Rfam assigns this 270-nucleotide RNA sequence from Rhodopirellula sp. MGV to the family "Group II catalytic intron D1-D4-6". Group II introns are found in rRNA, tRNA and mRNA of organelles in fungi, plants and protists, and also in mRNA in bacteria. Rfam links the family to the GO term Group II intron splicing. On this family, see Bonen and Vogel, Trends Genet 2001: "The ins and outs of group II introns". It scores 67 bits against the family's covariance model.
RNA sequence: GAACUCCCGUCGAAGUAACUCCUAGCCCGAGGCUUCGUAUCGAGUGUUGCAGCGUUCGUAGAAGAGUGUUUCUCGAAGUCGAACGUUGAAGCGUACGCGUAAAGGACGUGGGGGUAAAAGCACCAGGCGUGGUUGUCCGGUUGUGGAUGGUGUUGAGCUCCGAAAUCAUUGUUCCUGUUGGAUCCUAUCCAAGGUGUGUGCCUGCCUGAAGGCAGCAUCGACGGUCGCGUCAUGGCAAGUGACUGUCGGAGGCCUGGGCCGCGCAGGGCG
Numbered sequence: 001g002a003a004c005u006c007c008c009g010u011c012g013a014a015g016u017a018a019c020u021c022c023u024a025g026c027c028c029g030a031g032g033c034u035u036c037g038u039a040u041c042g043a044g045u046g047u048u049g050c051a052g053c054g055u056u057c058g059u060a061g062a063a064g065a066g067u068g069u070u071u072c073u074c075g076a077a078g079u080c081g082a083a084c085g086u087u088g089a090a091g092c093g094u095a096c097g098c099g100u101a102a103a104g105g106a107c108g109u110g111g112g113g114g115u116a117a118a119a120g121c122a123c124c125a126g127g128c129g130u131g132g133u134u135g136u137c138c139g140g141u142u143g144u145g146g147a148u149g150g151u152g153u154u155g156a157g158c159u160c161c162g163a164a165a166u167c168a169u170u171g172u173u174c175c176u177g178u179u180g181g182a183u184c185c186u187a188u189c190c191a192a193g194g195u196g197u198g199u200g201c202c203u204g205c206c207u208g209a210a211g212g213c214a215g216c217a218u219c220g221a222c223g224g225u226c227g228c229g230u231c232a233u234g235g236c237a238a239g240u241g242a243c244u245g246u247c248g249g250a251g252g253c254c255u256g257g258g259c260c261g262c263g264c265a266g267g268g269c270g
Stems, first nucleotide, its partner, number of pairs: 012036004019031003023238001025236002038103001040101001044098004048093002050088009155260001157259003161256002181254001184252003188212002192207004218249011